[Rfam]
RNA: Fluoride riboswitch aptamer (crcB RNA motif)
Organism: Kaistia sp. 32K
RNA sequence: UUCUCUUGCGGGAAUGGAGUCUCCCGAGGUCCCUCGGAUCUGAACCGCCGUGAUCGGCUGAUGACCCCUGCCAACGU
Numbered sequence: 001u002u003c004u005c006u007u008g009c010g011g012g013a014a015u016g017g018a019g020u021c022u023c024c025c026g027a028g029g030u031c032c033c034u035c036g037g038a039u040c041u042g043a044a045c046c047g048c049c050g051u052g053a054u055c056g057g058c059u060g061a062u063g064a065c066c067c068c069u070g071c072c073a074a075c076g077u
Stems, first nucleotide, its partner, number of pairs: 010025004016068002019065003047058004